[Rfam]
RNA sequence: AAUAAUAUAGGCGAUGGAGUUCGCCAUAACCGCCGUGAAGGCUAAUGACUCCUACCAGGUA
Numbered sequence: 001a002a003u004a005a006u007a008u009a010g011g012c013g014a015u016g017g018a019g020u021u022c023g024c025c026a027u028a029a030c031c032g033c034c035g036u037g038a039a040g041g042c043u044a045a046u047g048a049c050u051c052c053u054a055c056c057a058g059g060u061a
Base pairs, nucleotide, nucleotide: 010025011024012023013022016052017051018050019049020048021047032042033041034040
Dot-bracket structure: .........[[[[..((((((]]]]......(((.....)))....)))))).........

This 61-nucleotide sequence from Paenibacillus lutimineralis belongs to the Rfam family "Fluoride riboswitch aptamer (crcB RNA motif)".
Its family is annotated with response to fluoride and positive regulation of gene expression in the Gene Ontology.
NCBI's taxonomy places the organism under Bacteria, Bacillota, Caryophanales, Paenibacillaceae, Paenibacillus.